[Rfam]
RNA sequence: GAGAGCGGUCAAUGAUGGUUUUAACCCAAAAUGUCUGAACCUGUCUGAAGCAUCUCUUUGAUGCAAUCUUUUUGUUGCUCUGAGACCUCUCUGAGA
Number, nucleotide and partner (000 for none) at each position: 001g000002a000003g000004a090005g089006c000007g087008g086009u085010c084011a000012a000013u000014g000015a000016u000017g000018g000019u000020u000021u000022u000023a000024a000025c000026c000027c000028a000029a000030a000031a000032u000033g000034u000035c000036u000037g000038a000039a000040c000041c000042u000043g000044u000045c000046u000047g000048a000049a000050g000051c000052a000053u000054c000055u000056c000057u000058u000059u000060g000061a000062u000063g000064c000065a000066a000067u000068c000069u000070u000071u000072u000073u000074g000075u000076u000077g000078c000079u000080c000081u000082g000083a000084g010085a009086c008087c007088u000089c005090u004091c000092u000093g000094a000095g000096a000
This 96-nucleotide sequence from Chinchilla lanigera belongs to the Rfam family "Small nucleolar RNA SNORD91 family". The pairing is the family consensus, mapped onto this sequence. Its family is annotated with nucleolus and RNA processing in the Gene Ontology. A reference for the family is Huttenhofer et al. (2001), "RNomics: an experimental approach that identifies 201 candidates for novel, small, non-messenger RNAs in mouse", EMBO J. The family has 24 seed sequences and 977 matches in Rfam 15.1. By type it is a C/D-box small nucleolar RNA. NCBI's taxonomy places the organism under Eukaryota, Deuterostomia, Craniata, Chinchillidae, Chinchilla. A search with the family's covariance model found it, with a score of 94 bits.